RNA sequence: ACUCAGGCACGAUCCGUUUCUGGCGCAGAUAGCAGCGCAGAGAAGUGGAACCGACCUGAAGUAUCAAUCCUGAGGGA
Number, nucleotide and partner (000 for none) at each position: 001a062002c061003u060004c058005a057006g056007g055008c000009a000010c000011g000012a000013u049014c048015c047016g046017u045018u044019u043020c040021u039022g000023g000024c000025g000026c000027a000028g000029a000030u000031a000032g000033c000034a000035g000036c000037g000038c000039a021040g020041a000042g000043a019044a018045g017046u016047g015048g014049a013050a000051c000052c000053g000054a000055c007056c006057u005058g004059a000060a003061g002062u001063a000064u000065c000066a000067a000068u000069c000070c000071u000072g000073a000074g000075g000076g000077a000
Rfam assigns this 77-nucleotide RNA sequence from Corynebacterium genitalium to the family "L31-Corynebacteriaceae ribosomal protein leader". NCBI's taxonomy places the organism under Bacteria, Bacillati, Actinomycetota, Actinomycetes, Corynebacterium genitalium. Pairs were carried over by alignment from the consensus structure, which is taken from published work. The sequence is in the family's curated seed alignment. The literature on the family includes a 2020 paper in BMC Microbiol by Eckert and Weinberg, "Discovery of 20 novel ribosomal leader candidates in bacteria and archaea".